Record summary
A member of the RNA family "Small nucleolar RNA SNORD10" from Astyanax mexicanus, 140 nucleotides long. The family's RNA type in Rfam is C/D-box small nucleolar RNA. Pairs were carried over by alignment from the consensus structure, which was predicted with WAR.
[Rfam]
RNA sequence: GCUGUAAUGAUGAACCCUUAUGCGUGUCAACUGACUCUGUAGUACCCUGUGCUUCCUGGCCGCUCUUCAACGUUCUGUUGGGGGUGCGUUUGGGGCCACAGGUCUCCAGAGGCAUGAUCAGACCUCAUUGACCUGAACGC
Numbered sequence: 001g002c003u004g005u006a007a008u009g010a011u012g013a014a015c016c017c018u019u020a021u022g023c024g025u026g027u028c029a030a031c032u033g034a035c036u037c038u039g040u041a042g043u044a045c046c047c048u049g050u051g052c053u054u055c056c057u058g059g060c061c062g063c064u065c066u067u068c069a070a071c072g073u074u075c076u077g078u079u080g081g082g083g084g085u086g087c088g089u090u091u092g093g094g095g096c097c098a099c100a101g102g103u104c105u106c107c108a109g110a111g112g113c114a115u116g117a118u119c120a121g122a123c124c125u126c127a128u129u130g131a132c133c134u135g136a137a138c139g140c
Stems, first nucleotide, its partner, number of pairs: 001140002004138002046102006053095001